[Rfam]
RNA sequence: UGUCGGCCCUCCAAAGGUCGGGAAACUGAAGAGGCACUACUUCUUGCCGGGCGUGCGGUCGGGUCUCCCGUACCAAGCGAAGGCAUCGGACGGACGCUAGCGCUCUCCACACGCGCCAGCGAACGGUUUCGU
Numbered sequence: 001u002g003u004c005g006g007c008c009c010u011c012c013a014a015a016g017g018u019c020g021g022g023a024a025a026c027u028g029a030a031g032a033g034g035c036a037c038u039a040c041u042u043c044u045u046g047c048c049g050g051g052c053g054u055g056c057g058g059u060c061g062g063g064u065c066u067c068c069c070g071u072a073c074c075a076a077g078c079g080a081a082g083g084c085a086u087c088g089g090a091c092g093g094a095c096g097c098u099a100g101c102g103c104u105c106u107c108c109a110c111a112c113g114c115g116c117c118a119g120c121g122a123a124c125g126g127u128u129u130c131g132u
Stems, first nucleotide, its partner, number of pairs: 001023001003021006033048004055114003078088002
RNA: speF leader